[Rfam]
Nucleotides: 103
Base pairs, nucleotide, nucleotide: 002102003101004100005099006098007097008096013042014041015040016039017038021031022030023029025076026075027074028073043068044067045066046065048064049063050061051060052059053058072095077092078091079090080089081088
Number, partner (000 for none) and nucleotide at each position: 001000a002102u003101c004100u005099u006098a007097u008096c009000a010000a011000g012000a013042g014041a015040a016039g017038c018000a019000g020000a021031g022030g023029a024000a025076c026075u027074g028073g029023u030022c031021c032000g033000u034000u035000g036000a037000a038017g039016c040015u041014u042013c043068a044067g045066c046065a047000a048064c049063c050061u051060c052059c053058c054000g055000a056000a057000u058053g059052g060051g061050a062000a063049g064048g065046u066045g067044c068043u069000a070000a071000u072095u073028c074027c075026a076025g077092c078091a079090a080089g081088u082000c083000a084000u085000u086000g087000a088081a089080c090079u091078u092077g093000g094000c095072a096008g097007a098006u099005a100004a101003g102002a103000a

Notes:
A member of the RNA family "SAM riboswitch aptamer (S box leader)" from Thalassobacillus cyri, 103 nucleotides long. It scores 92 bits against the family's covariance model. The source organism's lineage runs through Bacteria, Bacillati, Bacilli, Bacillaceae and Thalassobacillus. The SAM riboswitch is found upstream of a number of genes which code for proteins involved in methionine or cysteine biosynthesis in Gram-positive bacteria. The SAM riboswitch acts at the level of transcription termination control. The predicted structure consists of a complex stem-loop region followed by a single stem loop terminator region.